The family of this 99-nucleotide RNA from Ventosimonas gracilis is "t44 RNA".
NCBI's taxonomy places the organism under Bacteria, Pseudomonadota, Gammaproteobacteria, Pseudomonadales, Ventosimonas.
For this family Rfam cites "Transcriptome analysis of Escherichia coli using high-density oligonucleotide probe arrays" (Tjaden et al., Nucleic Acids Res, 2002).
Rfam describes the family as follows. This family consists of a number of bacterial RNA genes of between 135 and 170 bases in length. The t44 gene has been identified in several species of enteric bacteria but homologs have also been identified in Pseudomonas and Coxiella species. The t44 gene is found between the map and rpsB genes in all species in the full alignment apart from Shigella flexneri.
A search with the family's covariance model found it, with a score of 60 bits.
It is annotated as a small RNA.
[Rfam]
RNA sequence: GUAUCAGCCAACUCAAACCACACAUUCAUCGACACGACUUUCUGGGUGCCGUGCAUUUAACCAGUGCAAGGUGGAAAGCGGGAUGGAUGGAGGCCAAAC
Numbered sequence: 001g002u003a004u005c006a007g008c009c010a011a012c013u014c015a016a017a018c019c020a021c022a023c024a025u026u027c028a029u030c031g032a033c034a035c036g037a038c039u040u041u042c043u044g045g046g047u048g049c050c051g052u053g054c055a056u057u058u059a060a061c062c063a064g065u066g067c068a069a070g071g072u073g074g075a076a077a078g079c080g081g082g083a084u085g086g087a088u089g090g091a092g093g094c095c096a097a098a099c
Stems, first nucleotide, its partner, number of pairs: 023089008035080002038078006048072003052068003